[Rfam]
RNA sequence: CUGACGACCGCGUCCGGGUCAAUUGCGGCUUGCAACACCCGAUCUCCCUCCACGUCCCGUCGUCGAUGACGGUCGUGGAAGGGGAGCGCGUCACUGUCAG
Number, nucleotide and partner (000 for none) at each position: 001c100002u099003g098004a097005c096006g000007a000008c000009c090010g089011c088012g087013u086014c000015c041016g040017g039018g038019u000020c000021a000022a000023u035024u034025g033026c032027g031028g000029c000030u000031u027032g026033c025034a024035a023036c000037a000038c018039c017040c016041g015042a000043u000044c000045u085046c084047c083048c082049u081050c078051c077052a076053c075054g074055u000056c000057c000058c000059g000060u000061c000062g000063u000064c000065g000066a000067u000068g000069a000070c000071g000072g000073u000074c054075g053076u052077g051078g050079a000080a000081g049082g048083g047084g046085a045086g013087c012088g011089c010090g009091u000092c000093a000094c000095u000096g005097u004098c003099a002100g001
Overview
The family of this 100-nucleotide RNA sequence is "L4-Archaeoglobi ribosomal protein leades". The literature on the family includes a 2020 paper in BMC Microbiol by Eckert and Weinberg, "Discovery of 20 novel ribosomal leader candidates in bacteria and archaea". The base pairs follow the family's consensus structure, which is taken from published work.